About this RNA:
This 449-nucleotide part of an RNA from Sulfuricella denitrificans belongs to the Rfam family "Bacterial large subunit ribosomal RNA". A search with the family's covariance model found it, with a score of 2832 bits.
RNA sequence: CUCUCCGAAAACUAUUGAGGUAGUGCCUCGUAAUAUACCCUCGGGGGUAAAGCACUGUUAUGGCUAGGGGCCUAUUGCUGGUUACCAACCCAUGGCAAACUAAGAAUACCGAGGAGUAAUUUUACGGGAGACAGACAUCGGGUGCUAACGUCCGGUGUCAAGAGGGAAACAACCCAGACCGCCGUCUAAGGUCCCAAAGCAUAGUUAAGUGGAAAACGAAGUGGGAAGGCACAGACAGCCAGGAGGUUGGCUUAGAAGCAGCCAUCCUUUAAAGAAAGCGUAAUAGCUCACUGGUCGAGUCGUCCUGCGCGGAAGAUGUAACGGGGCUCAAACUAUGCACCGAAGACGCGGAUCUAGACAUUCUCAUGGAUGUUUAGGUGGUAGGAGAGCGUUCUGUAAGCCUGCGAAGGUGUCUUGAGAAGGAUGCUGGAGGUAUCAGAAGUGCGAAU
Numbered sequence: 001c002u003c004u005c006c007g008a009a010a011a012c013u014a015u016u017g018a019g020g021u022a023g024u025g026c027c028u029c030g031u032a033a034u035a036u037a038c039c040c041u042c043g044g045g046g047g048u049a050a051a052g053c054a055c056u057g058u059u060a061u062g063g064c065u066a067g068g069g070g071c072c073u074a075u076u077g078c079u080g081g082u083u084a085c086c087a088a089c090c091c092a093u094g095g096c097a098a099a100c101u102a103a104g105a106a107u108a109c110c111g112a113g114g115a116g117u118a119a120u121u122u123u124a125c126g127g128g129a130g131a132c133a134g135a136c137a138u139c140g141g142g143u144g145c146u147a148a149c150g151u152c153c154g155g156u157g158u159c160a161a162g163a164g165g166g167a168a169a170c171a172a173c174c175c176a177g178a179c180c181g182c183c184g185u186c187u188a189a190g191g192u193c194c195c196a197a198a199g200c201a202u203a204g205u206u207a208a209g210u211g212g213a214a215a216a217c218g219a220a221g222u223g224g225g226a227a228g229g230c231a232c233a234g235a236c237a238g239c240c241a242g243g244a245g246g247u248u249g250g251c252u253u254a255g256a257a258g259c260a261g262c263c264a265u266c267c268u269u270u271a272a273a274g275a276a277a278g279c280g281u282a283a284u285a286g287c288u289c290a291c292u293g294g295u296c297g298a299g300u301c302g303u304c305c306u307g308c309g310c311g312g313a314a315g316a317u318g319u320a321a322c323g324g325g326g327c328u329c330a331a332a333c334u335a336u337g338c339a340c341c342g343a344a345g346a347c348g349c350g351g352a353u354c355u356a357g358a359c360a361u362u363c364u365c366a367u368g369g370a371u372g373u374u375u376a377g378g379u380g381g382u383a384g385g386a387g388a389g390c391g392u393u394c395u396g397u398a399a400g401c402c403u404g405c406g407a408a409g410g411u412g413u414c415u416u417g418a419g420a421a422g423g424a425u426g427c428u429g430g431a432g433g434u435a436u437c438a439g440a441a442g443u444g445c446g447a448a449u
Base pairs, nucleotide, nucleotide: 001389002388003387004386005385006384011024012023013022014021015020026130027128028127029126030125031124032123033122035121036118037117038116039114040113041112042111043110044109051101052100056097057096058095060093061092062091063090067086068085069083070082071081072080134159135158136157137156138155139154140153141152142151143150164175165174166173179351180350181349182348184347185346186345190341191340192339199338200337201336202335203334204333205332217311218310221308222307223306224305225304226303228301229300230299238295239294240293241292242291244268245267246266249263250262251261269273274289278287279286352379353378354377355376356375357374358373359372360371361370362369390444392441393440394439395438396437400434401433402432409428410427411426412425413424414423415422416421